Source information
This 71-nucleotide sequence from Mizuhopecten yessoensis belongs to the Rfam family "mir-124 microRNA precursor family".
RNA sequence: GCCUUUUUGUGUUCACUGUGGUGGCCUUGGUGUACUCACAUGAUUAAGGCACGCGGUGAAUGCCAAGGGGG
Number, nucleotide and partner (000 for none) at each position: 001g000002c000003c069004u068005u067006u066007u000008u000009g063010u062011g061012u060013u059014c058015a057016c056017u000018g054019u053020g052021g000022u000023g000024g000025c049026c048027u047028u046029g045030g044031u043032g000033u000034a000035c000036u000037c000038a000039c000040a000041u000042g000043a031044u030045u029046a028047a027048g026049g025050c000051a000052c020053g019054c018055g000056g016057u015058g014059a013060a012061u011062g010063c009064c000065a000066a006067g005068g004069g003070g000071g000